[Rfam]
Overview
A member of the RNA family "c-di-AMP riboswitch aptamer (ydaO/yuaA leader)" from Paenibacillus solanacearum, 358 nucleotides long.
RNA sequence: AAGUUCUGGUCGCUGAAUAUUCUUCGCGUCGCGAAGAACAACGGGGGAACCAUGGAAGCUGAUGCACAAGCGGUGUGAGAGCCGCGUACGCAUCAUUUGGGGUGAAUCUCACAAAGUUACAACUGACAUCGCUGUGCUUGAUGUAACAGUUGCAAUGUGGUUGACAACUGACAUCGCUGUGCUUGAUGUAGCAGUUGCAACGUAGUUGACAACUGACAUCGCUGUGCUUGAUGUAGCAGUUGCAACGUAGUUGACAACUGACAUCGCUGUACUCGAUGUAACAGUUGCAACGUGAGUAGGGCGACUCUCACCGUCCGAACCCGACAGCUAACCUCGUAAGCGUCGAACGACAGCCUAU
Numbered sequence: 001a002a003g004u005u006c007u008g009g010u011c012g013c014u015g016a017a018u019a020u021u022c023u024u025c026g027c028g029u030c031g032c033g034a035a036g037a038a039c040a041a042c043g044g045g046g047g048a049a050c051c052a053u054g055g056a057a058g059c060u061g062a063u064g065c066a067c068a069a070g071c072g073g074u075g076u077g078a079g080a081g082c083c084g085c086g087u088a089c090g091c092a093u094c095a096u097u098u099g100g101g102g103u104g105a106a107u108c109u110c111a112c113a114a115a116g117u118u119a120c121a122a123c124u125g126a127c128a129u130c131g132c133u134g135u136g137c138u139u140g141a142u143g144u145a146a147c148a149g150u151u152g153c154a155a156u157g158u159g160g161u162u163g164a165c166a167a168c169u170g171a172c173a174u175c176g177c178u179g180u181g182c183u184u185g186a187u188g189u190a191g192c193a194g195u196u197g198c199a200a201c202g203u204a205g206u207u208g209a210c211a212a213c214u215g216a217c218a219u220c221g222c223u224g225u226g227c228u229u230g231a232u233g234u235a236g237c238a239g240u241u242g243c244a245a246c247g248u249a250g251u252u253g254a255c256a257a258c259u260g261a262c263a264u265c266g267c268u269g270u271a272c273u274c275g276a277u278g279u280a281a282c283a284g285u286u287g288c289a290a291c292g293u294g295a296g297u298a299g300g301g302c303g304a305c306u307c308u309c310a311c312c313g314u315c316c317g318a319a320c321c322c323g324a325c326a327g328c329u330a331a332c333c334u335c336g337u338a339a340g341c342g343u344c345g346a347a348c349g350a351c352a353g354c355c356u357a358u
Base pairs, nucleotide, nucleotide: 011342012341013340014339018040020038021037022036023035024034025033026032027031041337042336043335044334045333046332051099052098100322101321102320108296109295110294111293299316300315301314302313

Its family is annotated with cyclic-di-AMP binding and regulation of gene expression in the Gene Ontology. The match comes from Rfam's covariance-model search (67 bits).